RNA sequence: UCUGCUUCAUCACGGUUAAUGAACAUAGAUCUACUAUCACGUUCUAUGGUCCAUUGUAAGAUAUGAAGCAUAAAUCACACUGCUACCUCGCUAUCCGAUGCAAUCGAAAUCGUGCUGCAUUUGGACGUUGGUGAGCUACAUUC
Numbered sequence: 001u002c003u004g005c006u007u008c009a010u011c012a013c014g015g016u017u018a019a020u021g022a023a024c025a026u027a028g029a030u031c032u033a034c035u036a037u038c039a040c041g042u043u044c045u046a047u048g049g050u051c052c053a054u055u056g057u058a059a060g061a062u063a064u065g066a067a068g069c070a071u072a073a074a075u076c077a078c079a080c081u082g083c084u085a086c087c088u089c090g091c092u093a094u095c096c097g098a099u100g101c102a103a104u105c106g107a108a109a110u111c112g113u114g115c116u117g118c119a120u121u122u123g124g125a126c127g128u129u130g131g132u133g134a135g136c137u138a139c140a141u142u143c
Base pairs, nucleotide, nucleotide: 001073003070004069005068008065009064010063011056012055015052021051022050024048025047026046027045028044029043031041082136083135084134085132086131087130089127090126094125095124096123097122098121100115101114102113
Dot-bracket structure: (.(((..(((((..(.....((.((((((.(.........).)))))).)))..))......)))..)))..)........((((((.((...(((((.(((..........))).....)))))))..))).))).......
About this RNA:
The family of this 143-nucleotide RNA sequence from Zingiber officinale is "Small nucleolar RNA snoR136". A reference for the family is Chen and Wu (2009), "Mining small RNA sequencing data: a new approach to identify small nucleolar RNAs in Arabidopsis", Nucleic Acids Res. A search with the family's covariance model found it, with a score of 44 bits. Lineage of the source: Eukaryota > Viridiplantae > commelinids > Zingiberales > Zingiber.